[Rfam]
RNA sequence: UAAUGCUUACAGCUCUUUUUGAAUUUGUCUAAUAGAUCUUCCAGUCUUUACCAGAAGACCCCC
Numbered sequence: 001u002a003a004u005g006c007u008u009a010c011a012g013c014u015c016u017u018u019u020u021g022a023a024u025u026u027g028u029c030u031a032a033u034a035g036a037u038c039u040u041c042c043a044g045u046c047u048u049u050a051c052c053a054g055a056a057g058a059c060c061c062c063c
Base pairs, nucleotide, nucleotide: 035060037058038057039056040055041054044051045050
Source information:
The record is a 63-nucleotide sequence from Phyllostomus discolor, which matches "U7 small nuclear RNA" in Rfam. The family has 49 seed sequences and 10,439 matches in Rfam 15.1. The base pairs follow the family's consensus structure, which was predicted with PFOLD.